About this RNA:
Rfam assigns this 98-nucleotide RNA sequence from Charybdisvirus scam3 to the family "wcaG RNA". It is annotated as a cis-regulatory element. NCBI's taxonomy places the organism under Viruses, Heunggongvirae, Uroviricota, Pantevenvirales, Charybdisvirus scam3. The match comes from Rfam's covariance-model search (82 bits).
RNA sequence: AAAUCCCCGCAGGAUAAGGGUUAAGCCUGCUGGUGCGGAUGGGGUUACUCCCGCCUGGUUUCUUGUUUCCAGUCAAAGAACAAGUGGCGAGCCUGCUC
Numbered sequence: 001a002a003a004u005c006c007c008c009g010c011a012g013g014a015u016a017a018g019g020g021u022u023a024a025g026c027c028u029g030c031u032g033g034u035g036c037g038g039a040u041g042g043g044g045u046u047a048c049u050c051c052c053g054c055c056u057g058g059u060u061u062c063u064u065g066u067u068u069c070c071a072g073u074c075a076a077a078g079a080a081c082a083a084g085u086g087g088c089g090a091g092c093c094u095g096c097u098c
Stems, first nucleotide, its partner, number of pairs: 009030005015024001040053005055072004062084006